[Rfam]
RNA: Purine riboswitch aptamer
RNA sequence: CACCUAUUUUUUAUUUUAUUUUGUAUAAAUGUUGUAUGAUAGCCAACAGGUUUCUACCUUACCGCUAUAAGGGUAAGACUACAAAAUUGUUUUUGUAGUGG
Numbered sequence: 001c002a003c004c005u006a007u008u009u010u011u012u013a014u015u016u017u018a019u020u021u022u023g024u025a026u027a028a029a030u031g032u033u034g035u036a037u038g039a040u041a042g043c044c045a046a047c048a049g050g051u052u053u054c055u056a057c058c059u060u061a062c063c064g065c066u067a068u069a070a071g072g073g074u075a076a077g078a079c080u081a082c083a084a085a086a087u088u089g090u091u092u093u094u095g096u097a098g099u100g101g
Base pairs, nucleotide, nucleotide: 018087019086020085021084022083023082024081025080030048031047032046033045034044058077059076060075061074062073063072